The record is a 71-nucleotide sequence from Folsomia candida, which matches "mir-1175 microRNA precursor family" in Rfam.
Pairs were carried over by alignment from the consensus structure, which was predicted with RNAalifold.
Lineage of the source: Eukaryota > Protostomia > Allotriocarida > Hexapoda > Folsomia.
It scores 54 bits against the family's covariance model.

[Rfam]
RNA sequence: CGAACUAAGUGGAGUAGUUGGUCUUGUCACUUUGAAAUUAUAAGUGAGAUUCAACUUCUCUACUUAUUUCG
Numbered sequence: 001c002g003a004a005c006u007a008a009g010u011g012g013a014g015u016a017g018u019u020g021g022u023c024u025u026g027u028c029a030c031u032u033u034g035a036a037a038u039u040a041u042a043a044g045u046g047a048g049a050u051u052c053a054a055c056u057u058c059u060c061u062a063c064u065u066a067u068u069u070c071g
Stems, first nucleotide, its partner, number of pairs: 007065008016057002018054001024049002027047006